[Rfam]
RNA sequence: GGCCUUUCCCUUUGCCGCAGACCCGCCUAUAUUGGUGAGGUCGGGUUUCGGCCUGACUAUGGGGAUAAACGCCCACGUAAUAAGCGAACUGGACCCGGGUGCGAUUCCCGGCGGCUCCACCAUUCCCUUCGCAAGAGGGCUUUUUAUGGGGCCGAUCAGCAUCGACAGGCGUGUAAAGGUGAAGCUUUCCCUCAGUGUGAGCCUCUGUGAUCGGCUCAUUUUAUAACUGCGAACGAUAACUUCGCUUCGGAUCAAGCUCUUGCUGCGUAAUGCGGCGGAGUUAAUCCACCUAAACUCCUAGGAAUUAAGCCUCCUAGGCGGGGCCCGGAAGCCGCCUUGCAACAGAAGGCUUCCACU
Dot-bracket structure: .......................................(((((((....)))))))...(((((.....((.(((........((..(((...(((((.......)))))(((((((.............................)))))))...........))).)).......)))..))..)))))[[[..((((((.]]].....))))))......................................................................................................[[[[..((((((.]]]]...........))))))...
Numbered sequence: 001g002g003c004c005u006u007u008c009c010c011u012u013u014g015c016c017g018c019a020g021a022c023c024c025g026c027c028u029a030u031a032u033u034g035g036u037g038a039g040g041u042c043g044g045g046u047u048u049c050g051g052c053c054u055g056a057c058u059a060u061g062g063g064g065a066u067a068a069a070c071g072c073c074c075a076c077g078u079a080a081u082a083a084g085c086g087a088a089c090u091g092g093a094c095c096c097g098g099g100u101g102c103g104a105u106u107c108c109c110g111g112c113g114g115c116u117c118c119a120c121c122a123u124u125c126c127c128u129u130c131g132c133a134a135g136a137g138g139g140c141u142u143u144u145u146a147u148g149g150g151g152c153c154g155a156u157c158a159g160c161a162u163c164g165a166c167a168g169g170c171g172u173g174u175a176a177a178g179g180u181g182a183a184g185c186u187u188u189c190c191c192u193c194a195g196u197g198u199g200a201g202c203c204u205c206u207g208u209g210a211u212c213g214g215c216u217c218a219u220u221u222u223a224u225a226a227c228u229g230c231g232a233a234c235g236a237u238a239a240c241u242u243c244g245c246u247u248c249g250g251a252u253c254a255a256g257c258u259c260u261u262g263c264u265g266c267g268u269a270a271u272g273c274g275g276c277g278g279a280g281u282u283a284a285u286c287c288a289c290c291u292a293a294a295c296u297c298c299u300a301g302g303a304a305u306u307a308a309g310c311c312u313c314c315u316a317g318g319c320g321g322g323g324c325c326c327g328g329a330a331g332c333c334g335c336c337u338u339g340c341a342a343c344a345g346a347a348g349g350c351u352u353c354c355a356c357u
Stems, first nucleotide, its partner, number of pairs: 040057007061192005071185002074181003085171002089168003095111005112154007193207003198218006321337004327354006